[Rfam]
RNA sequence: GCCCUGGUAUCCCAAUGGCAGAGGACGCCGGCUCAGAAUCGGUGCGUUGUGGGUUCGAGUCCCACCCAGGGCA
Numbered sequence: 001g002c003c004c005u006g007g008u009a010u011c012c013c014a015a016u017g018g019c020a021g022a023g024g025a026c027g028c029c030g031g032c033u034c035a036g037a038a039u040c041g042g043u044g045c046g047u048u049g050u051g052g053g054u055u056c057g058a059g060u061c062c063c064a065c066c067c068a069g070g071g072c073a
Base pairs, nucleotide, nucleotide: 001072002071003070004069005068006067007066010025011024012023027043028042029041030040031039049065050064051063052062053061
Source information: A member of the RNA family "tRNA" from Ostreobium quekettii, 73 nucleotides long. Transfer RNA (tRNA) molecules are approximately 80 nucleotides in length. Taxonomically the source falls in Ostreobium (Eukaryota, Chlorophyta, Bryopsidales, Ostreobineae). By type it is a transfer RNA.